[Rfam]
RNA sequence: GUAGAUGCUCAUUCCACUCCUUAUGAUUGUUAACGCUUCAUAAACCAGGAAUGAUGCAGAGCCCUUUACGGUACCUGUUGUCCACCCGCCAGUCUCGCUUCGGCCUUACUGGAGUCCAAGGACAAUACGUUGAGUCAGGUACCAGCCAAAUUGUCUUACCGACCUGAUCUUUACACCUGCCAGUUUGGCAGGUGUUUUUUU
Numbered sequence: 001g002u003a004g005a006u007g008c009u010c011a012u013u014c015c016a017c018u019c020c021u022u023a024u025g026a027u028u029g030u031u032a033a034c035g036c037u038u039c040a041u042a043a044a045c046c047a048g049g050a051a052u053g054a055u056g057c058a059g060a061g062c063c064c065u066u067u068a069c070g071g072u073a074c075c076u077g078u079u080g081u082c083c084a085c086c087c088g089c090c091a092g093u094c095u096c097g098c099u100u101c102g103g104c105c106u107u108a109c110u111g112g113a114g115u116c117c118a119a120g121g122a123c124a125a126u127a128c129g130u131u132g133a134g135u136c137a138g139g140u141a142c143c144a145g146c147c148a149a150a151u152u153g154u155c156u157u158a159c160c161g162a163c164c165u166g167a168u169c170u171u172u173a174c175a176c177c178u179g180c181c182a183g184u185u186u187g188g189c190a191g192g193u194g195u196u197u198u199u200u201u
Stems, first nucleotide, its partner, number of pairs: 001062002006058003009054004015049001017048001027035001070143007080123004091110003153163003173195010
A member of the RNA family "GlmZ RNA activator of glmS mRNA" from Erwinia billingiae, 201 nucleotides long.
From the family's description: This RNA was discovered in E. coli during a large scale screen. The sraJ gene was expressed in early logarithmic phase, but its level decreased with cell growth. Specific cleavage products of this RNA were found.
The base pairs follow the family's consensus structure, which is taken from published work.
On this family, see Argaman et al., Curr Biol 2001: "Novel small RNA-encoding genes in the intergenic regions of Escherichia coli".
The family is grouped with related families in Rfam's "Glm clan".
The family's RNA type in Rfam is small RNA.